Shown here is a 90-nucleotide RNA from Microtus ochrogaster, a member of the family "mir-3070 microRNA precursor family".
The base pairs follow the family's consensus structure, which was predicted with RNAalifold.
NCBI's taxonomy places the organism under Eukaryota, Vertebrata, Dipnotetrapodomorpha, Rodentia, Microtus.
Its family is annotated with RISC complex and miRNA-mediated post-transcriptional gene silencing in the Gene Ontology.
RNA sequence: GUGCUAAGGUGAGGCUGAGCCCCUGACCUUAAACCGGGGAUCCUGCCCAUGAUCUCCUGGUGCUGCUGUCAGGGGUAGAUUCCUUGUAAA
Numbered sequence: 001g002u003g004c005u006a007a008g009g010u011g012a013g014g015c016u017g018a019g020c021c022c023c024u025g026a027c028c029u030u031a032a033a034c035c036g037g038g039g040a041u042c043c044u045g046c047c048c049a050u051g052a053u054c055u056c057c058u059g060g061u062g063c064u065g066c067u068g069u070c071a072g073g074g075g076u077a078g079a080u081u082c083c084u085u086g087u088a089a090a
Stems, first nucleotide, its partner, number of pairs: 005089001007087001011085004019076009033061003037056006